[Rfam]
Nucleotides: 120
Stems, first nucleotide, its partner, number of pairs: 023100005034091005043082003050076004
Number, partner (000 for none) and nucleotide at each position: 001000a002000c003000u004000c005000a006000a007000c008000a009000a010000g011000a012000a013000u014000c015000c016000a017000u018000u019000a020000a021000a022000a023100a024099a025098g026097g027096u028000g029000a030000g031000u032000u033000c034091g035090a036089a037088u038087u039000g040000u041000a042000a043082a044081a045080g046000c047000a048000u049000g050076c051075c052074a053073c054000u055000a056000u057000c058000g059000g060000u061000u062000u063000u064000a065000c066000c067000g068000a069000u070000u071000g072000g073053g074052u075051g076050g077000a078000u079000c080045c081044u082043u083000g084000a085000u086000c087038a088037g089036u090035u091034c092000g093000g094000u095000a096027g097026c098025c099024u100023u101000a102000a103000a104000c105000c106000u107000g108000u109000u110000a111000u112000u113000c114000g115000g116000a117000g118000u119000u120000u
The family of this 120-nucleotide RNA from Robertkochia marina is "6S-Flavo RNA". A search with the family's covariance model found it, with a score of 92 bits. Rfam classes the family as a small RNA. The base pairs follow the family's consensus structure, which is taken from published work.